[Rfam]
Glycine riboswitch aptamer: a 108-nucleotide RNA sequence from an Anaerolineae bacterium. Lineage of the source: Bacteria > Bacillati > Chloroflexota > Anaerolineae.

RNA sequence: CACUCUGGAGAGCCGACGAAGCGCCAGCAGAGCGCCGAUCGUCGCACCGACGGGGCAAUCUUCUGGCCGCUGUGCUGGCAGAAAUCUCUCAGGUGAAAGGACAGAGGG
Number, nucleotide and partner (000 for none) at each position: 001c108002a000003c106004u105005c104006u103007g102008g000009a000010g000011a000012g000013c000014c044015g043016a042017c041018g040019a039020a000021g000022c000023g000024c000025c000026a000027g000028c000029a000030g000031a000032g000033c000034g000035c000036c000037g000038a000039u019040c018041g017042u016043c015044g014045c000046a094047c093048c092049g090050a089051c000052g000053g088054g087055g086056c000057a000058a000059u082060c081061u000062u000063c000064u000065g000066g000067c000068c000069g000070c000071u000072g000073u000074g000075c000076u000077g000078g000079c000080a000081g060082a059083a000084a000085u000086c055087u054088c053089u050090c049091a000092g048093g047094u046095g000096a000097a000098a000099g000100g000101a000102c007103a006104g005105a004106g003107g000108g001